[Rfam]
Record summary: Shown here is a 55-nucleotide RNA, a member of the family "Glutamine-II riboswitch aptamer". Rfam links the family to the GO term glutamine binding.

RNA sequence: GUCCGUUCAUCCUGCAAAGGACGCAUGACAACCUAAGCAUGGAACGGGGCUUAGG
Numbered sequence: 001g002u003c004c005g006u007u008c009a010u011c012c013u014g015c016a017a018a019g020g021a022c023g024c025a026u027g028a029c030a031a032c033c034u035a036a037g038c039a040u041g042g043a044a045c046g047g048g049g050c051u052u053a054g055g
Stems, first nucleotide, its partner, number of pairs: 004046005010021004032055007
The literature on the family includes a 2019 paper in Nucleic Acids Res by Huang et al., "Structure and ligand binding of the glutamine-II riboswitch". Pairs were carried over by alignment from the consensus structure, which is taken from published work. Rfam's curators put it in the seed alignment.